[Rfam]
RNA sequence: GAUUUCAGUUGAAAAAGUCAUGAACAUAAAAGUUAUAUAACUCAUCAAGAUCUAUAACUUUUAUUUUGGUCAUUUGUUCAUCAGACAAAGUGAUAGUAACAUUGUUCAUAAAUUUUACAUAUCCCUCAAACAUCUCUCAUAUAGUUUGAGAGAUAUGUAAAAUUUGUGAAUAAUGUUACUAUCACUUUGUUUGAUGAACAAAUGACCAAAAUAAAAGUUGUAGAUUUUGAUGAGUUGUACAACUUUUAUGUUCAUGACUUUUUUAGCUGAAAUC
Number, nucleotide and partner (000 for none) at each position: 001g000002a000003u000004u000005u000006c000007a000008g000009u000010u000011g000012a000013a000014a261015a260016a259017g258018u257019c256020a255021u254022g000023a252024a251025c000026a249027u248028a000029a000030a245031a244032g243033u242034u241035a000036u239037a238038u237039a236040a235041c234042u233043c000044a231045u230046c229047a228048a227049g226050a225051u224052c223053u222054a000055u220056a219057a218058c217059u216060u215061u214062u213063a212064u211065u210066u209067u208068g000069g206070u205071c204072a203073u202074u201075u200076g000077u198078u197079c196080a195081u194082c000083a192084g191085a190086c189087a188088a187089a186090g185091u184092g183093a000094u181095a180096g179097u178098a177099a176100c000101a174102u173103u172104g171105u170106u169107c168108a167109u166110a165111a164112a163113u000114u161115u160116u000117a158118c157119a156120u155121a154122u153123c000124c000125c000126u000127c000128a000129a000130a000131c144132a142133u141134c000135u139136c000137u000138c000139a135140u000141a133142u132143a000144g131145u000146u000147u000148g000149a000150g000151a000152g000153a122154u121155a120156u119157g118158u117159a000160a115161a114162a000163u112164u111165u110166g109167u108168g107169a106170a105171u104172a103173a102174u101175g000176u099177u098178a097179c096180u095181a094182u000183c092184a091185c090186u089187u088188u087189g086190u085191u084192u083193g000194a081195u080196g079197a078198a077199c000200a075201a074202a073203u072204g071205a070206c069207c000208a067209a066210a065211a064212u063213a062214a061215a060216a059217g058218u057219u056220g055221u000222a053223g052224a051225u050226u049227u048228u047229g046230a045231u044232g000233a042234g041235u040236u039237g038238u037239a036240c000241a034242a033243c032244u031245u030246u000247u000248a027249u026250g000251u024252u023253c000254a021255u020256g019257a018258c017259u016260u015261u014262u000263u000264u000265a000266g000267c000268u000269g000270a000271a000272a000273u000274c000
The family of this 274-nucleotide RNA sequence from Miscanthus lutarioriparius is "MIR821 microRNA precursor family".
The match comes from Rfam's covariance-model search (250 bits).
Gene Ontology terms of the family: RISC complex and miRNA-mediated post-transcriptional gene silencing.